[Rfam]
RNA sequence: GGAUGUGAGGGCGAUCUGGCUGUGACAUCUGUCACCCCACUGAUCACCAGGGUUGAUUCGGCUGAUCUGGCUGGCUAGGCCUGUGUCCCCUUCCUCCCUCACCGCUCCAUGUGUGUCCCUCCCGAAGCUGUGCGCUCGGUCGAAGAGGACGACCAUCCCCGAUAGAGGAGGACCGUUCUUCGGUCAAGGGUAUACGAGUAGUUGCACUCCCCUGCUAGAACCUCCAAACAAGCUCUCAAGUUCUAUGUGGCUAGAGACAGAAAAAGUGAGGCAAAAGAUGAAGUU
Number, nucleotide and partner (000 for none) at each position: 001g108002g107003a106004u000005g102006u101007g100008a099009g098010g097011g096012c000013g093014a092015u000016c000017u000018g090019g089020c000021u000022g000023u000024g087025a086026c085027a084028u083029c000030u000031g080032u079033c078034a000035c074036c073037c070038c069039a068040c000041u000042g067043a066044u065045c064046a000047c061048c060049a000050g000051g000052g000053u000054u000055g000056a000057u000058u000059c000060g048061g047062c000063u000064g045065a044066u043067c042068u039069g038070g037071c000072u000073g036074g035075c000076u000077a000078g033079g032080c031081c000082u000083g028084u027085g026086u025087c024088c000089c019090c018091u000092u014093c013094c000095u000096c011097c010098c009099u008100c007101a006102c005103c000104g000105c000106u003107c002108c001109a000110u000111g000112u000113g000114u000115g000116u171117c170118c168119c167120u166121c165122c139123c138124g137125a136126a000127g135128c134129u000130g000131u000132g000133c000134g128135c127136u125137c124138g123139g122140u162141c161142g160143a000144a000145g000146a000147g158148g157149a156150c000151g000152a000153c000154c000155a000156u149157c148158c147159c000160c142161g141162a140163u000164a000165g121166a120167g119168g118169a000170g117171g116172a000173c000174c000175g000176u000177u000178c000179u000180u000181c000182g000183g000184u000185c000186a000187a000188g000189g000190g000191u000192a000193u000194a000195c000196g000197a000198g000199u000200a000201g000202u276203u275204g000205c000206a000207c271208u270209c000210c268211c000212c266213u265214g000215c000216u000217a000218g000219a000220a000221c000222c256223u255224c254225c000226a000227a000228a000229c250230a248231a000232g246233c000234u000235c000236u000237c000238a000239a000240g000241u000242u000243c000244u000245a000246u232247g000248u230249g000250g229251c000252u000253a000254g224255a223256g222257a000258c000259a000260g000261a000262a000263a000264a000265a213266g212267u000268g210269a000270g208271g207272c000273a000274a000275a203276a202277g000278a000279u000280g000281a000282a000283g000284u000285u000
This 285-nucleotide RNA from Catagonus wagneri belongs to the Rfam family "7SK RNA". It is annotated as a non-coding RNA gene. The literature on the family includes a 2002 paper in Curr Biol by Blencowe, "Transcription: surprising role for an elusive small nuclear RNA". The base pairs follow the family's consensus structure, which is taken from published work. Taxonomically the source falls in Catagonus (Eukaryota, Metazoa, Artiodactyla, Tayassuidae). The match comes from Rfam's covariance-model search (263 bits). The family has 45 seed sequences and 49,373 matches in Rfam 15.1. 7SK was discovered as an abundant small nuclear RNA in the mid-70s but a possible function has only recently been suggested. Two independent studies have found that 7SK RNA binds the CDK9/cyclin T complex (known as elongation factor P-TEFb). P-TEFb activates transcription by phosphorylating the C-terminal domain of RNA polymerase II. This process is negatively regulated by the 7SK RNP. The secondary structure of 7SK RNA shown here was proposed by Wasserman and Steitz on the basis of chemical modification and enzymatic cleavage experiments. This family contains a number of annotated pseudogenes and 7SK derived repeats.